The family of this 495-nucleotide part of an RNA from Sulfitobacter mediterraneus is "Bacterial large subunit ribosomal RNA". The source organism's lineage runs through Bacteria, Alphaproteobacteria, Rhodobacterales, Roseobacteraceae and Sulfitobacter.
[Rfam]
RNA sequence: CUCUGCGAAAUCUAUUUAGGUAGAGCGUCGACCGAAUACCAUCGGGGGUAGAGCACUGGAUGGGUAAUGGGGCCCCACAGGCUUACUGAUCCUAACCAAACUCCGAAUACCGAUGAGUACUAGUCGGCAGACACACGGCGAAUGCUAACGUCCGUCGUGAAGAGGGAAACAACCCUAACCUCCAGCUAAGGCCCCUAAUUCAUGGCUAAGUGGGAAAGCAGGUGAGACGACCAAAACAACCAGGAGGUUGGCUUAGAAGCAGCCAUCCUUUAAAGAUAGCGUAACAGCUCACUGGUCUAAAUAAGUUGUCUUGCGGCGAAGAUGUAACGGGGCUCAAGCCAUGAGCCGAAGCUGAGGAUGCAUUUAUUGCAUGGUAGCAGAGCGUAGUGUGACAUAAGACUUUGUCUCCUUACUUCCUUCGGGAAUAUUGGAGACGUAGUCUUUUCUGUGAAGCUGGCGCGUGAGCGAUCCGGUGGAGAGAUCACUAGUGAGAAU
Numbered sequence: 001c002u003c004u005g006c007g008a009a010a011u012c013u014a015u016u017u018a019g020g021u022a023g024a025g026c027g028u029c030g031a032c033c034g035a036a037u038a039c040c041a042u043c044g045g046g047g048g049u050a051g052a053g054c055a056c057u058g059g060a061u062g063g064g065u066a067a068u069g070g071g072g073c074c075c076c077a078c079a080g081g082c083u084u085a086c087u088g089a090u091c092c093u094a095a096c097c098a099a100a101c102u103c104c105g106a107a108u109a110c111c112g113a114u115g116a117g118u119a120c121u122a123g124u125c126g127g128c129a130g131a132c133a134c135a136c137g138g139c140g141a142a143u144g145c146u147a148a149c150g151u152c153c154g155u156c157g158u159g160a161a162g163a164g165g166g167a168a169a170c171a172a173c174c175c176u177a178a179c180c181u182c183c184a185g186c187u188a189a190g191g192c193c194c195c196u197a198a199u200u201c202a203u204g205g206c207u208a209a210g211u212g213g214g215a216a217a218g219c220a221g222g223u224g225a226g227a228c229g230a231c232c233a234a235a236a237c238a239a240c241c242a243g244g245a246g247g248u249u250g251g252c253u254u255a256g257a258a259g260c261a262g263c264c265a266u267c268c269u270u271u272a273a274a275g276a277u278a279g280c281g282u283a284a285c286a287g288c289u290c291a292c293u294g295g296u297c298u299a300a301a302u303a304a305g306u307u308g309u310c311u312u313g314c315g316g317c318g319a320a321g322a323u324g325u326a327a328c329g330g331g332g333c334u335c336a337a338g339c340c341a342u343g344a345g346c347c348g349a350a351g352c353u354g355a356g357g358a359u360g361c362a363u364u365u366a367u368u369g370c371a372u373g374g375u376a377g378c379a380g381a382g383c384g385u386a387g388u389g390u391g392a393c394a395u396a397a398g399a400c401u402u403u404g405u406c407u408c409c410u411u412a413c414u415u416c417c418u419u420c421g422g423g424a425a426u427a428u429u430g431g432a433g434a435c436g437u438a439g440u441c442u443u444u445u446c447u448g449u450g451a452a453g454c455u456g457g458c459g460c461g462u463g464a465g466c467g468a469u470c471c472g473g474u475g476g477a478g479a480g481a482u483c484a485c486u487a488g489u490g491a492g493a494a495u
Base pairs, nucleotide, nucleotide: 001382002381003380004379005378006377011024012023013022014021015020026130027128028127029126030125031124032123036121040115041114042113043112044111045110051104052102053101057098058097059096061094062093063092064091069086070084071083072082073081074080134159135158136157137156138155139154140153142151143150164175165174166173179357180356181355182354184353185352186351190347191346192345199344201343202342203341204340205339206338218317219316222314223313224312225311226310227309228308229307230306231305239296240295241294242293243292245269246268247267250264251263252262270274275290279288280287358372359371360370361369362368383490385487386486387485388484389483402473403472